[Rfam]
RNA sequence: AUUGAUUUCAUGAAAACACACACAUACAUCGACACAUAGCUCGGGGUGCCGGGGCAAUAAAGCCGCUGGUCGAACUAUGGGAUGUAUGGAGGCAUAAC
Numbered sequence: 001a002u003u004g005a006u007u008u009c010a011u012g013a014a015a016a017c018a019c020a021c022a023c024a025u026a027c028a029u030c031g032a033c034a035c036a037u038a039g040c041u042c043g044g045g046g047u048g049c050c051g052g053g054g055c056a057a058u059a060a061a062g063c064c065g066c067u068g069g070u071c072g073a074a075c076u077a078u079g080g081g082a083u084g085u086a087u088g089g090a091g092g093c094a095u096a097a098c
Base pairs, nucleotide, nucleotide: 023088024087025086026085027084028083029082030081035079036078037077038076039075041073042072043071048070049069050068051067052066
The record is a 98-nucleotide RNA from Pseudidiomarina indica, which matches "t44 RNA" in Rfam. By type it is a small RNA. About the family: This family consists of a number of bacterial RNA genes of between 135 and 170 bases in length. The t44 gene has been identified in several species of enteric bacteria but homologs have also been identified in Pseudomonas and Coxiella species. The t44 gene is found between the map and rpsB genes in all species in the full alignment apart from Shigella flexneri. The function of this RNA is unknown. The organism belongs to Pseudidiomarina, within Bacteria. On this family, see Tjaden et al., Nucleic Acids Res 2002: "Transcriptome analysis of Escherichia coli using high-density oligonucleotide probe arrays".